[Rfam]
RNA sequence: CUGUAAAGAUAUGUGUGGCUGUAGGGCCUUUUCUUAGGUUAUUCUAAGGCAUAUCGAGGAA
Numbered sequence: 001c002u003g004u005a006a007a008g009a010u011a012u013g014u015g016u017g018g019c020u021g022u023a024g025g026g027c028c029u030u031u032u033c034u035u036a037g038g039u040u041a042u043u044c045u046a047a048g049g050c051a052u053a054u055c056g057a058g059g060a061a
Base pairs, nucleotide, nucleotide: 008055009054010053011052012051013050015030017028018027019026020025033048034047035046036045037044